[Rfam]
The family of this 79-nucleotide RNA from Mesorhizobium australicum is "Makes More Granules Regulator RNA (mmgR)". SuhB later renamed mmgR (makes more granules regulator) was a putative non-coding RNA found multiple times in the Agrobacterium tumefaciens genome and related alpha-proteobacteria.

RNA sequence: CGUCUAUGCCCUCCUUGGGCGUUUCCUCCCUAGACUUGGACCGCGUCGUGCGAACGAUGCGGUCUUUUUUUCGGUCCGG
Numbered sequence: 001c002g003u004c005u006a007u008g009c010c011c012u013c014c015u016u017g018g019g020c021g022u023u024u025c026c027u028c029c030c031u032a033g034a035c036u037u038g039g040a041c042c043g044c045g046u047c048g049u050g051c052g053a054a055c056g057a058u059g060c061g062g063u064c065u066u067u068u069u070u071u072c073g074g075u076c077c078g079g
Stems, first nucleotide, its partner, number of pairs: 008020004039064009
Dot-bracket structure: .......((((.....))))..................(((((((((........)))))))))...............
The pairing is the family consensus, mapped onto this sequence. The organism belongs to Mesorhizobium, within Bacteria. Rfam 15.1 lists 1,791 matches to the family in 918 species. The family's RNA type in Rfam is small RNA.